[Rfam]
RNA sequence: UACUACCAAACCCUAUAUCGACCCCCACGGGGUGACCGCUGGGAACUCUUUCUUAAUGAAAGGUUGCGGACGGAGAAGG
Numbered sequence: 001u002a003c004u005a006c007c008a009a010a011c012c013c014u015a016u017a018u019c020g021a022c023c024c025c026c027a028c029g030g031g032g033u034g035a036c037c038g039c040u041g042g043g044a045a046c047u048c049u050u051u052c053u054u055a056a057u058g059a060a061a062g063g064u065u066g067c068g069g070a071c072g073g074a075g076a077a078g079g
Base pairs, nucleotide, nucleotide: 012079013078014077016075018073019072020071021033022032023031044065045064046063048062049061050060051059052058
The record is a 79-nucleotide RNA sequence from Hermetia illucens, which matches "drz-agam-1 ribozyme" in Rfam. Rfam links the family to the GO term catalytic activity. For this family Rfam cites "Widespread occurrence of self-cleaving ribozymes" (Webb et al., Science, 2009). The family has 7 seed sequences and 10,507 matches in Rfam 15.1.